Description: The family of this 75-nucleotide RNA from Apis mellifera is "mir-9/mir-79 microRNA precursor family".

RNA sequence: GUUUAUUUUUCUUUGGUGAGCUAACUGUAUGGUGAAUUGAAAGGCCAUAAAGCUAGUUCAGCAAGGCAAGAUAUU
Dot-bracket structure: (.(...((.((((.(.(((((((.((.((((((..........)))))).)).))))))).))))).))...).)
Pairs were carried over by alignment from the consensus structure, which was predicted with RNAalifold. On this family, see Lagos-Quintana et al., Science 2001: "Identification of novel genes coding for small expressed RNAs". The sequence is in the family's curated seed alignment. Rfam links the family to the GO terms miRNA-mediated post-transcriptional gene silencing and RISC complex. The source organism's lineage runs through Eukaryota, Pancrustacea, Hymenoptera, Anthophila and Apis.